[Rfam]
RNA sequence: CCACUCACAUCACCUUAUCACUUUUCCAGCCUCGCUUCACUCUAAUGUGCUGGACGGAGAACUGAUAAGGGCAUGUGUUUGG
Numbered sequence: 001c002c003a004c005u006c007a008c009a010u011c012a013c014c015u016u017a018u019c020a021c022u023u024u025u026c027c028a029g030c031c032u033c034g035c036u037u038c039a040c041u042c043u044a045a046u047g048u049g050c051u052g053g054a055c056g057g058a059g060a061a062c063u064g065a066u067a068a069g070g071g072c073a074u075g076u077g078u079u080u081g082g
Base pairs, nucleotide, nucleotide: 013070014069015068016067017066018065019064020063022061023060024059025058026057027056030053031052